A member of the RNA family "Streptomyces RNA 3920" from Streptomyces cinnamoneus, 125 nucleotides long. For this family Rfam cites "Deep sequencing-based identification of small non-coding RNAs in Streptomyces coelicolor" (Vockenhuber et al., RNA Biol, 2011). NCBI's taxonomy places the organism under Bacteria, Bacillati, Actinomycetota, Streptomycetaceae, Streptomyces. It scores 95 bits against the family's covariance model.
[Rfam]
RNA sequence: GAUAGGGCUGUGUCGCUAGCGUGAUUGGACACUGACGCUUAGUCAACUAGCCUUGGUCGCACGGUCCUUCACAGAGGGAACCGGGACGGCUCGAGCCAAGAGGGGGGAGGCUCGAGCCGUCCGCU
Number, nucleotide and partner (000 for none) at each position: 001g014002a013003u012004a011005g000006g000007g000008c000009u000010g000011u004012g003013u002014c001015g051016c050017u049018a048019g000020c000021g032022u031023g030024a000025u000026u000027g000028g000029a000030c023031a022032c021033u045034g044035a043036c042037g000038c000039u000040u000041a000042g036043u035044c034045a033046a000047c000048u018049a017050g016051c015052c000053u000054u000055g000056g000057u000058c000059g000060c000061a000062c000063g070064g069065u000066c000067c000068u000069u064070c063071a000072c000073a000074g000075a000076g000077g082078g000079a000080a000081c000082c077083g000084g000085g121086a120087c119088g118089g117090c116091u115092c114093g113094a112095g111096c110097c109098a000099a000100g000101a000102g000103g000104g000105g000106g000107g000108a000109g097110g096111c095112u094113c093114g092115a091116g090117c089118c088119g087120u086121c085122c000123g000124c000125u000